[Rfam]
RNA sequence: UUCUUGUGAUGAAUUCUACUUUGUGCCAUCGUGUCUGGGCCACUGAUACUUCAUGAUGGUAAAGAGGAUCUGAGGGG
Numbered sequence: 001u002u003c004u005u006g007u008g009a010u011g012a013a014u015u016c017u018a019c020u021u022u023g024u025g026c027c028a029u030c031g032u033g034u035c036u037g038g039g040c041c042a043c044u045g046a047u048a049c050u051u052c053a054u055g056a057u058g059g060u061a062a063a064g065a066g067g068a069u070c071u072g073a074g075g076g077g
Stems, first nucleotide, its partner, number of pairs: 001077004